Rfam assigns this 372-nucleotide sequence from Alistipes indistinctus to the family "Bacterial RNase P class A". NCBI's taxonomy places the organism under Bacteria, Bacteroidia, Bacteroidales, Rikenellaceae, Alistipes indistinctus. A search with the family's covariance model found it, with a score of 234 bits. The base pairs follow the family's consensus structure, which is taken from published work.
[Rfam]
RNA sequence: CAGCAGGGAGGCUCUGCCGCUGCCUUCGGUUCAGCCGGAGGGGGAGGAAAGUCCGGGCAACACAGAGCGCCGUCCUUCCUAACGGGAAGAUUUCCGCAAGGGAAUAGUAGUGUAACAGAGAACAACCGCCUAAGGCCCGCUUGCGGGUCCGGUAAGGGUGAAAAGGUGGGGUAAGGGCCCACCGCGGGUGUGGCGACACACUUUGGCCGUACGCCUGACGGGUUGCAAGACCAUGUAUACCGACGCAGUAGGAUGGCUCGUCCGAUGUCGGGGGGUAGGUUGCUGACGAGCCGUGCGGGUGACCGCCGGCCUAGAUAAAUGGCAGAGGCCUCUUCGGAGGUACAGAACCCGGCUUAUACGCCCUGCUGUGCU
Numbered sequence: 001c002a003g004c005a006g007g008g009a010g011g012c013u014c015u016g017c018c019g020c021u022g023c024c025u026u027c028g029g030u031u032c033a034g035c036c037g038g039a040g041g042g043g044g045a046g047g048a049a050a051g052u053c054c055g056g057g058c059a060a061c062a063c064a065g066a067g068c069g070c071c072g073u074c075c076u077u078c079c080u081a082a083c084g085g086g087a088a089g090a091u092u093u094c095c096g097c098a099a100g101g102g103a104a105u106a107g108u109a110g111u112g113u114a115a116c117a118g119a120g121a122a123c124a125a126c127c128g129c130c131u132a133a134g135g136c137c138c139g140c141u142u143g144c145g146g147g148u149c150c151g152g153u154a155a156g157g158g159u160g161a162a163a164a165g166g167u168g169g170g171g172u173a174a175g176g177g178c179c180c181a182c183c184g185c186g187g188g189u190g191u192g193g194c195g196a197c198a199c200a201c202u203u204u205g206g207c208c209g210u211a212c213g214c215c216u217g218a219c220g221g222g223u224u225g226c227a228a229g230a231c232c233a234u235g236u237a238u239a240c241c242g243a244c245g246c247a248g249u250a251g252g253a254u255g256g257c258u259c260g261u262c263c264g265a266u267g268u269c270g271g272g273g274g275g276u277a278g279g280u281u282g283c284u285g286a287c288g289a290g291c292c293g294u295g296c297g298g299g300u301g302a303c304c305g306c307c308g309g310c311c312u313a314g315a316u317a318a319a320u321g322g323c324a325g326a327g328g329c330c331u332c333u334u335c336g337g338a339g340g341u342a343c344a345g346a347a348c349c350c351g352g353c354u355u356a357u358a359c360g361c362c363c364u365g366c367u368g369u370g371c372u
Stems, first nucleotide, its partner, number of pairs: 001368008010359001011357001012327007020044002023041006049355003053352005058225004065259004070221005075089005090105001092103004106216002110214005126157002128153003134149006165183006184207001185205003188201005229281004240271005251263004290310004295306004